[Rfam]
RNA sequence: AAGCCAGCCCUGAACUGUCACCGUUAUGGUGCGCGUGCCUAGGACAUCUAGGAUAAGGGCUGAUUUCGAC
Numbered sequence: 001a002a003g004c005c006a007g008c009c010c011u012g013a014a015c016u017g018u019c020a021c022c023g024u025u026a027u028g029g030u031g032c033g034c035g036u037g038c039c040u041a042g043g044a045c046a047u048c049u050a051g052g053a054u055a056a057g058g059g060c061u062g063a064u065u066u067c068g069a070c
Base pairs, nucleotide, nucleotide: 001066002065003064005062006061007060008059009058010057011056016035017034018033019031020030021029022028038052039051040050041049